The record is an 83-nucleotide RNA sequence, which matches "Proteo-phage-1 RNA" in Rfam.

RNA sequence: CCAUAGCCAGGGUGGCCCGCAAGGGAGGGCCUGGACACGGUAUGGCCGGUUAGUCACGUGUUUCGAAAAGAACACCGGCAGCC
Numbered sequence: 001c002c003a004u005a006g007c008c009a010g011g012g013u014g015g016c017c018c019g020c021a022a023g024g025g026a027g028g029g030c031c032u033g034g035a036c037a038c039g040g041u042a043u044g045g046c047c048g049g050u051u052a053g054u055c056a057c058g059u060g061u062u063u064c065g066a067a068a069a070g071a072a073c074a075c076c077g078g079c080a081g082c083c
Stems, first nucleotide, its partner, number of pairs: 001015004007034005016025003036060004041056001045079005